[Rfam]
RNA sequence: AGGGUUGUCGAUCUGGCCCCUACUUAAGUCCAGAUCUAAUGCUAAAAAGGUAAUUUAAAAUG
Numbered sequence: 001a002g003g004g005u006u007g008u009c010g011a012u013c014u015g016g017c018c019c020c021u022a023c024u025u026a027a028g029u030c031c032a033g034a035u036c037u038a039a040u041g042c043u044a045a046a047a048a049g050g051u052a053a054u055u056u057a058a059a060a061u062g
Stems, first nucleotide, its partner, number of pairs: 001021004010036007

About this RNA
DUF2815 RNA: a 62-nucleotide RNA sequence. The family's RNA type in Rfam is small RNA.